[Rfam]
A member of the RNA family "Alphaproteobacterial sRNA ar7" from Borborobacter arsenicus, 146 nucleotides long. Pairs were carried over by alignment from the consensus structure. By type it is a small RNA.
RNA sequence: CAUCGGCAAUCUUAGCCGAGUCCGGAACCAAGGCCCGUCCCCCGCCUGAACCGGACGCUGCGGCAGCCUAAUCCCCCCUCUCCGGGCUGCCGCACCCUUUUUGAAAGUAUAGCCGCCGUGGUUCCCCUCCACCACGGCGGCUUUUU
Numbered sequence: 001c002a003u004c005g006g007c008a009a010u011c012u013u014a015g016c017c018g019a020g021u022c023c024g025g026a027a028c029c030a031a032g033g034c035c036c037g038u039c040c041c042c043c044g045c046c047u048g049a050a051c052c053g054g055a056c057g058c059u060g061c062g063g064c065a066g067c068c069u070a071a072u073c074c075c076c077c078c079u080c081u082c083c084g085g086g087c088u089g090c091c092g093c094a095c096c097c098u099u100u101u102u103g104a105a106a107g108u109a110u111a112g113c114c115g116c117c118g119u120g121g122u123u124c125c126c127c128u129c130c131a132c133c134a135c136g137g138c139g140g141c142u143u144u145u146u
Stems, first nucleotide, its partner, number of pairs: 022054004028048001032046003059094010107142001113140010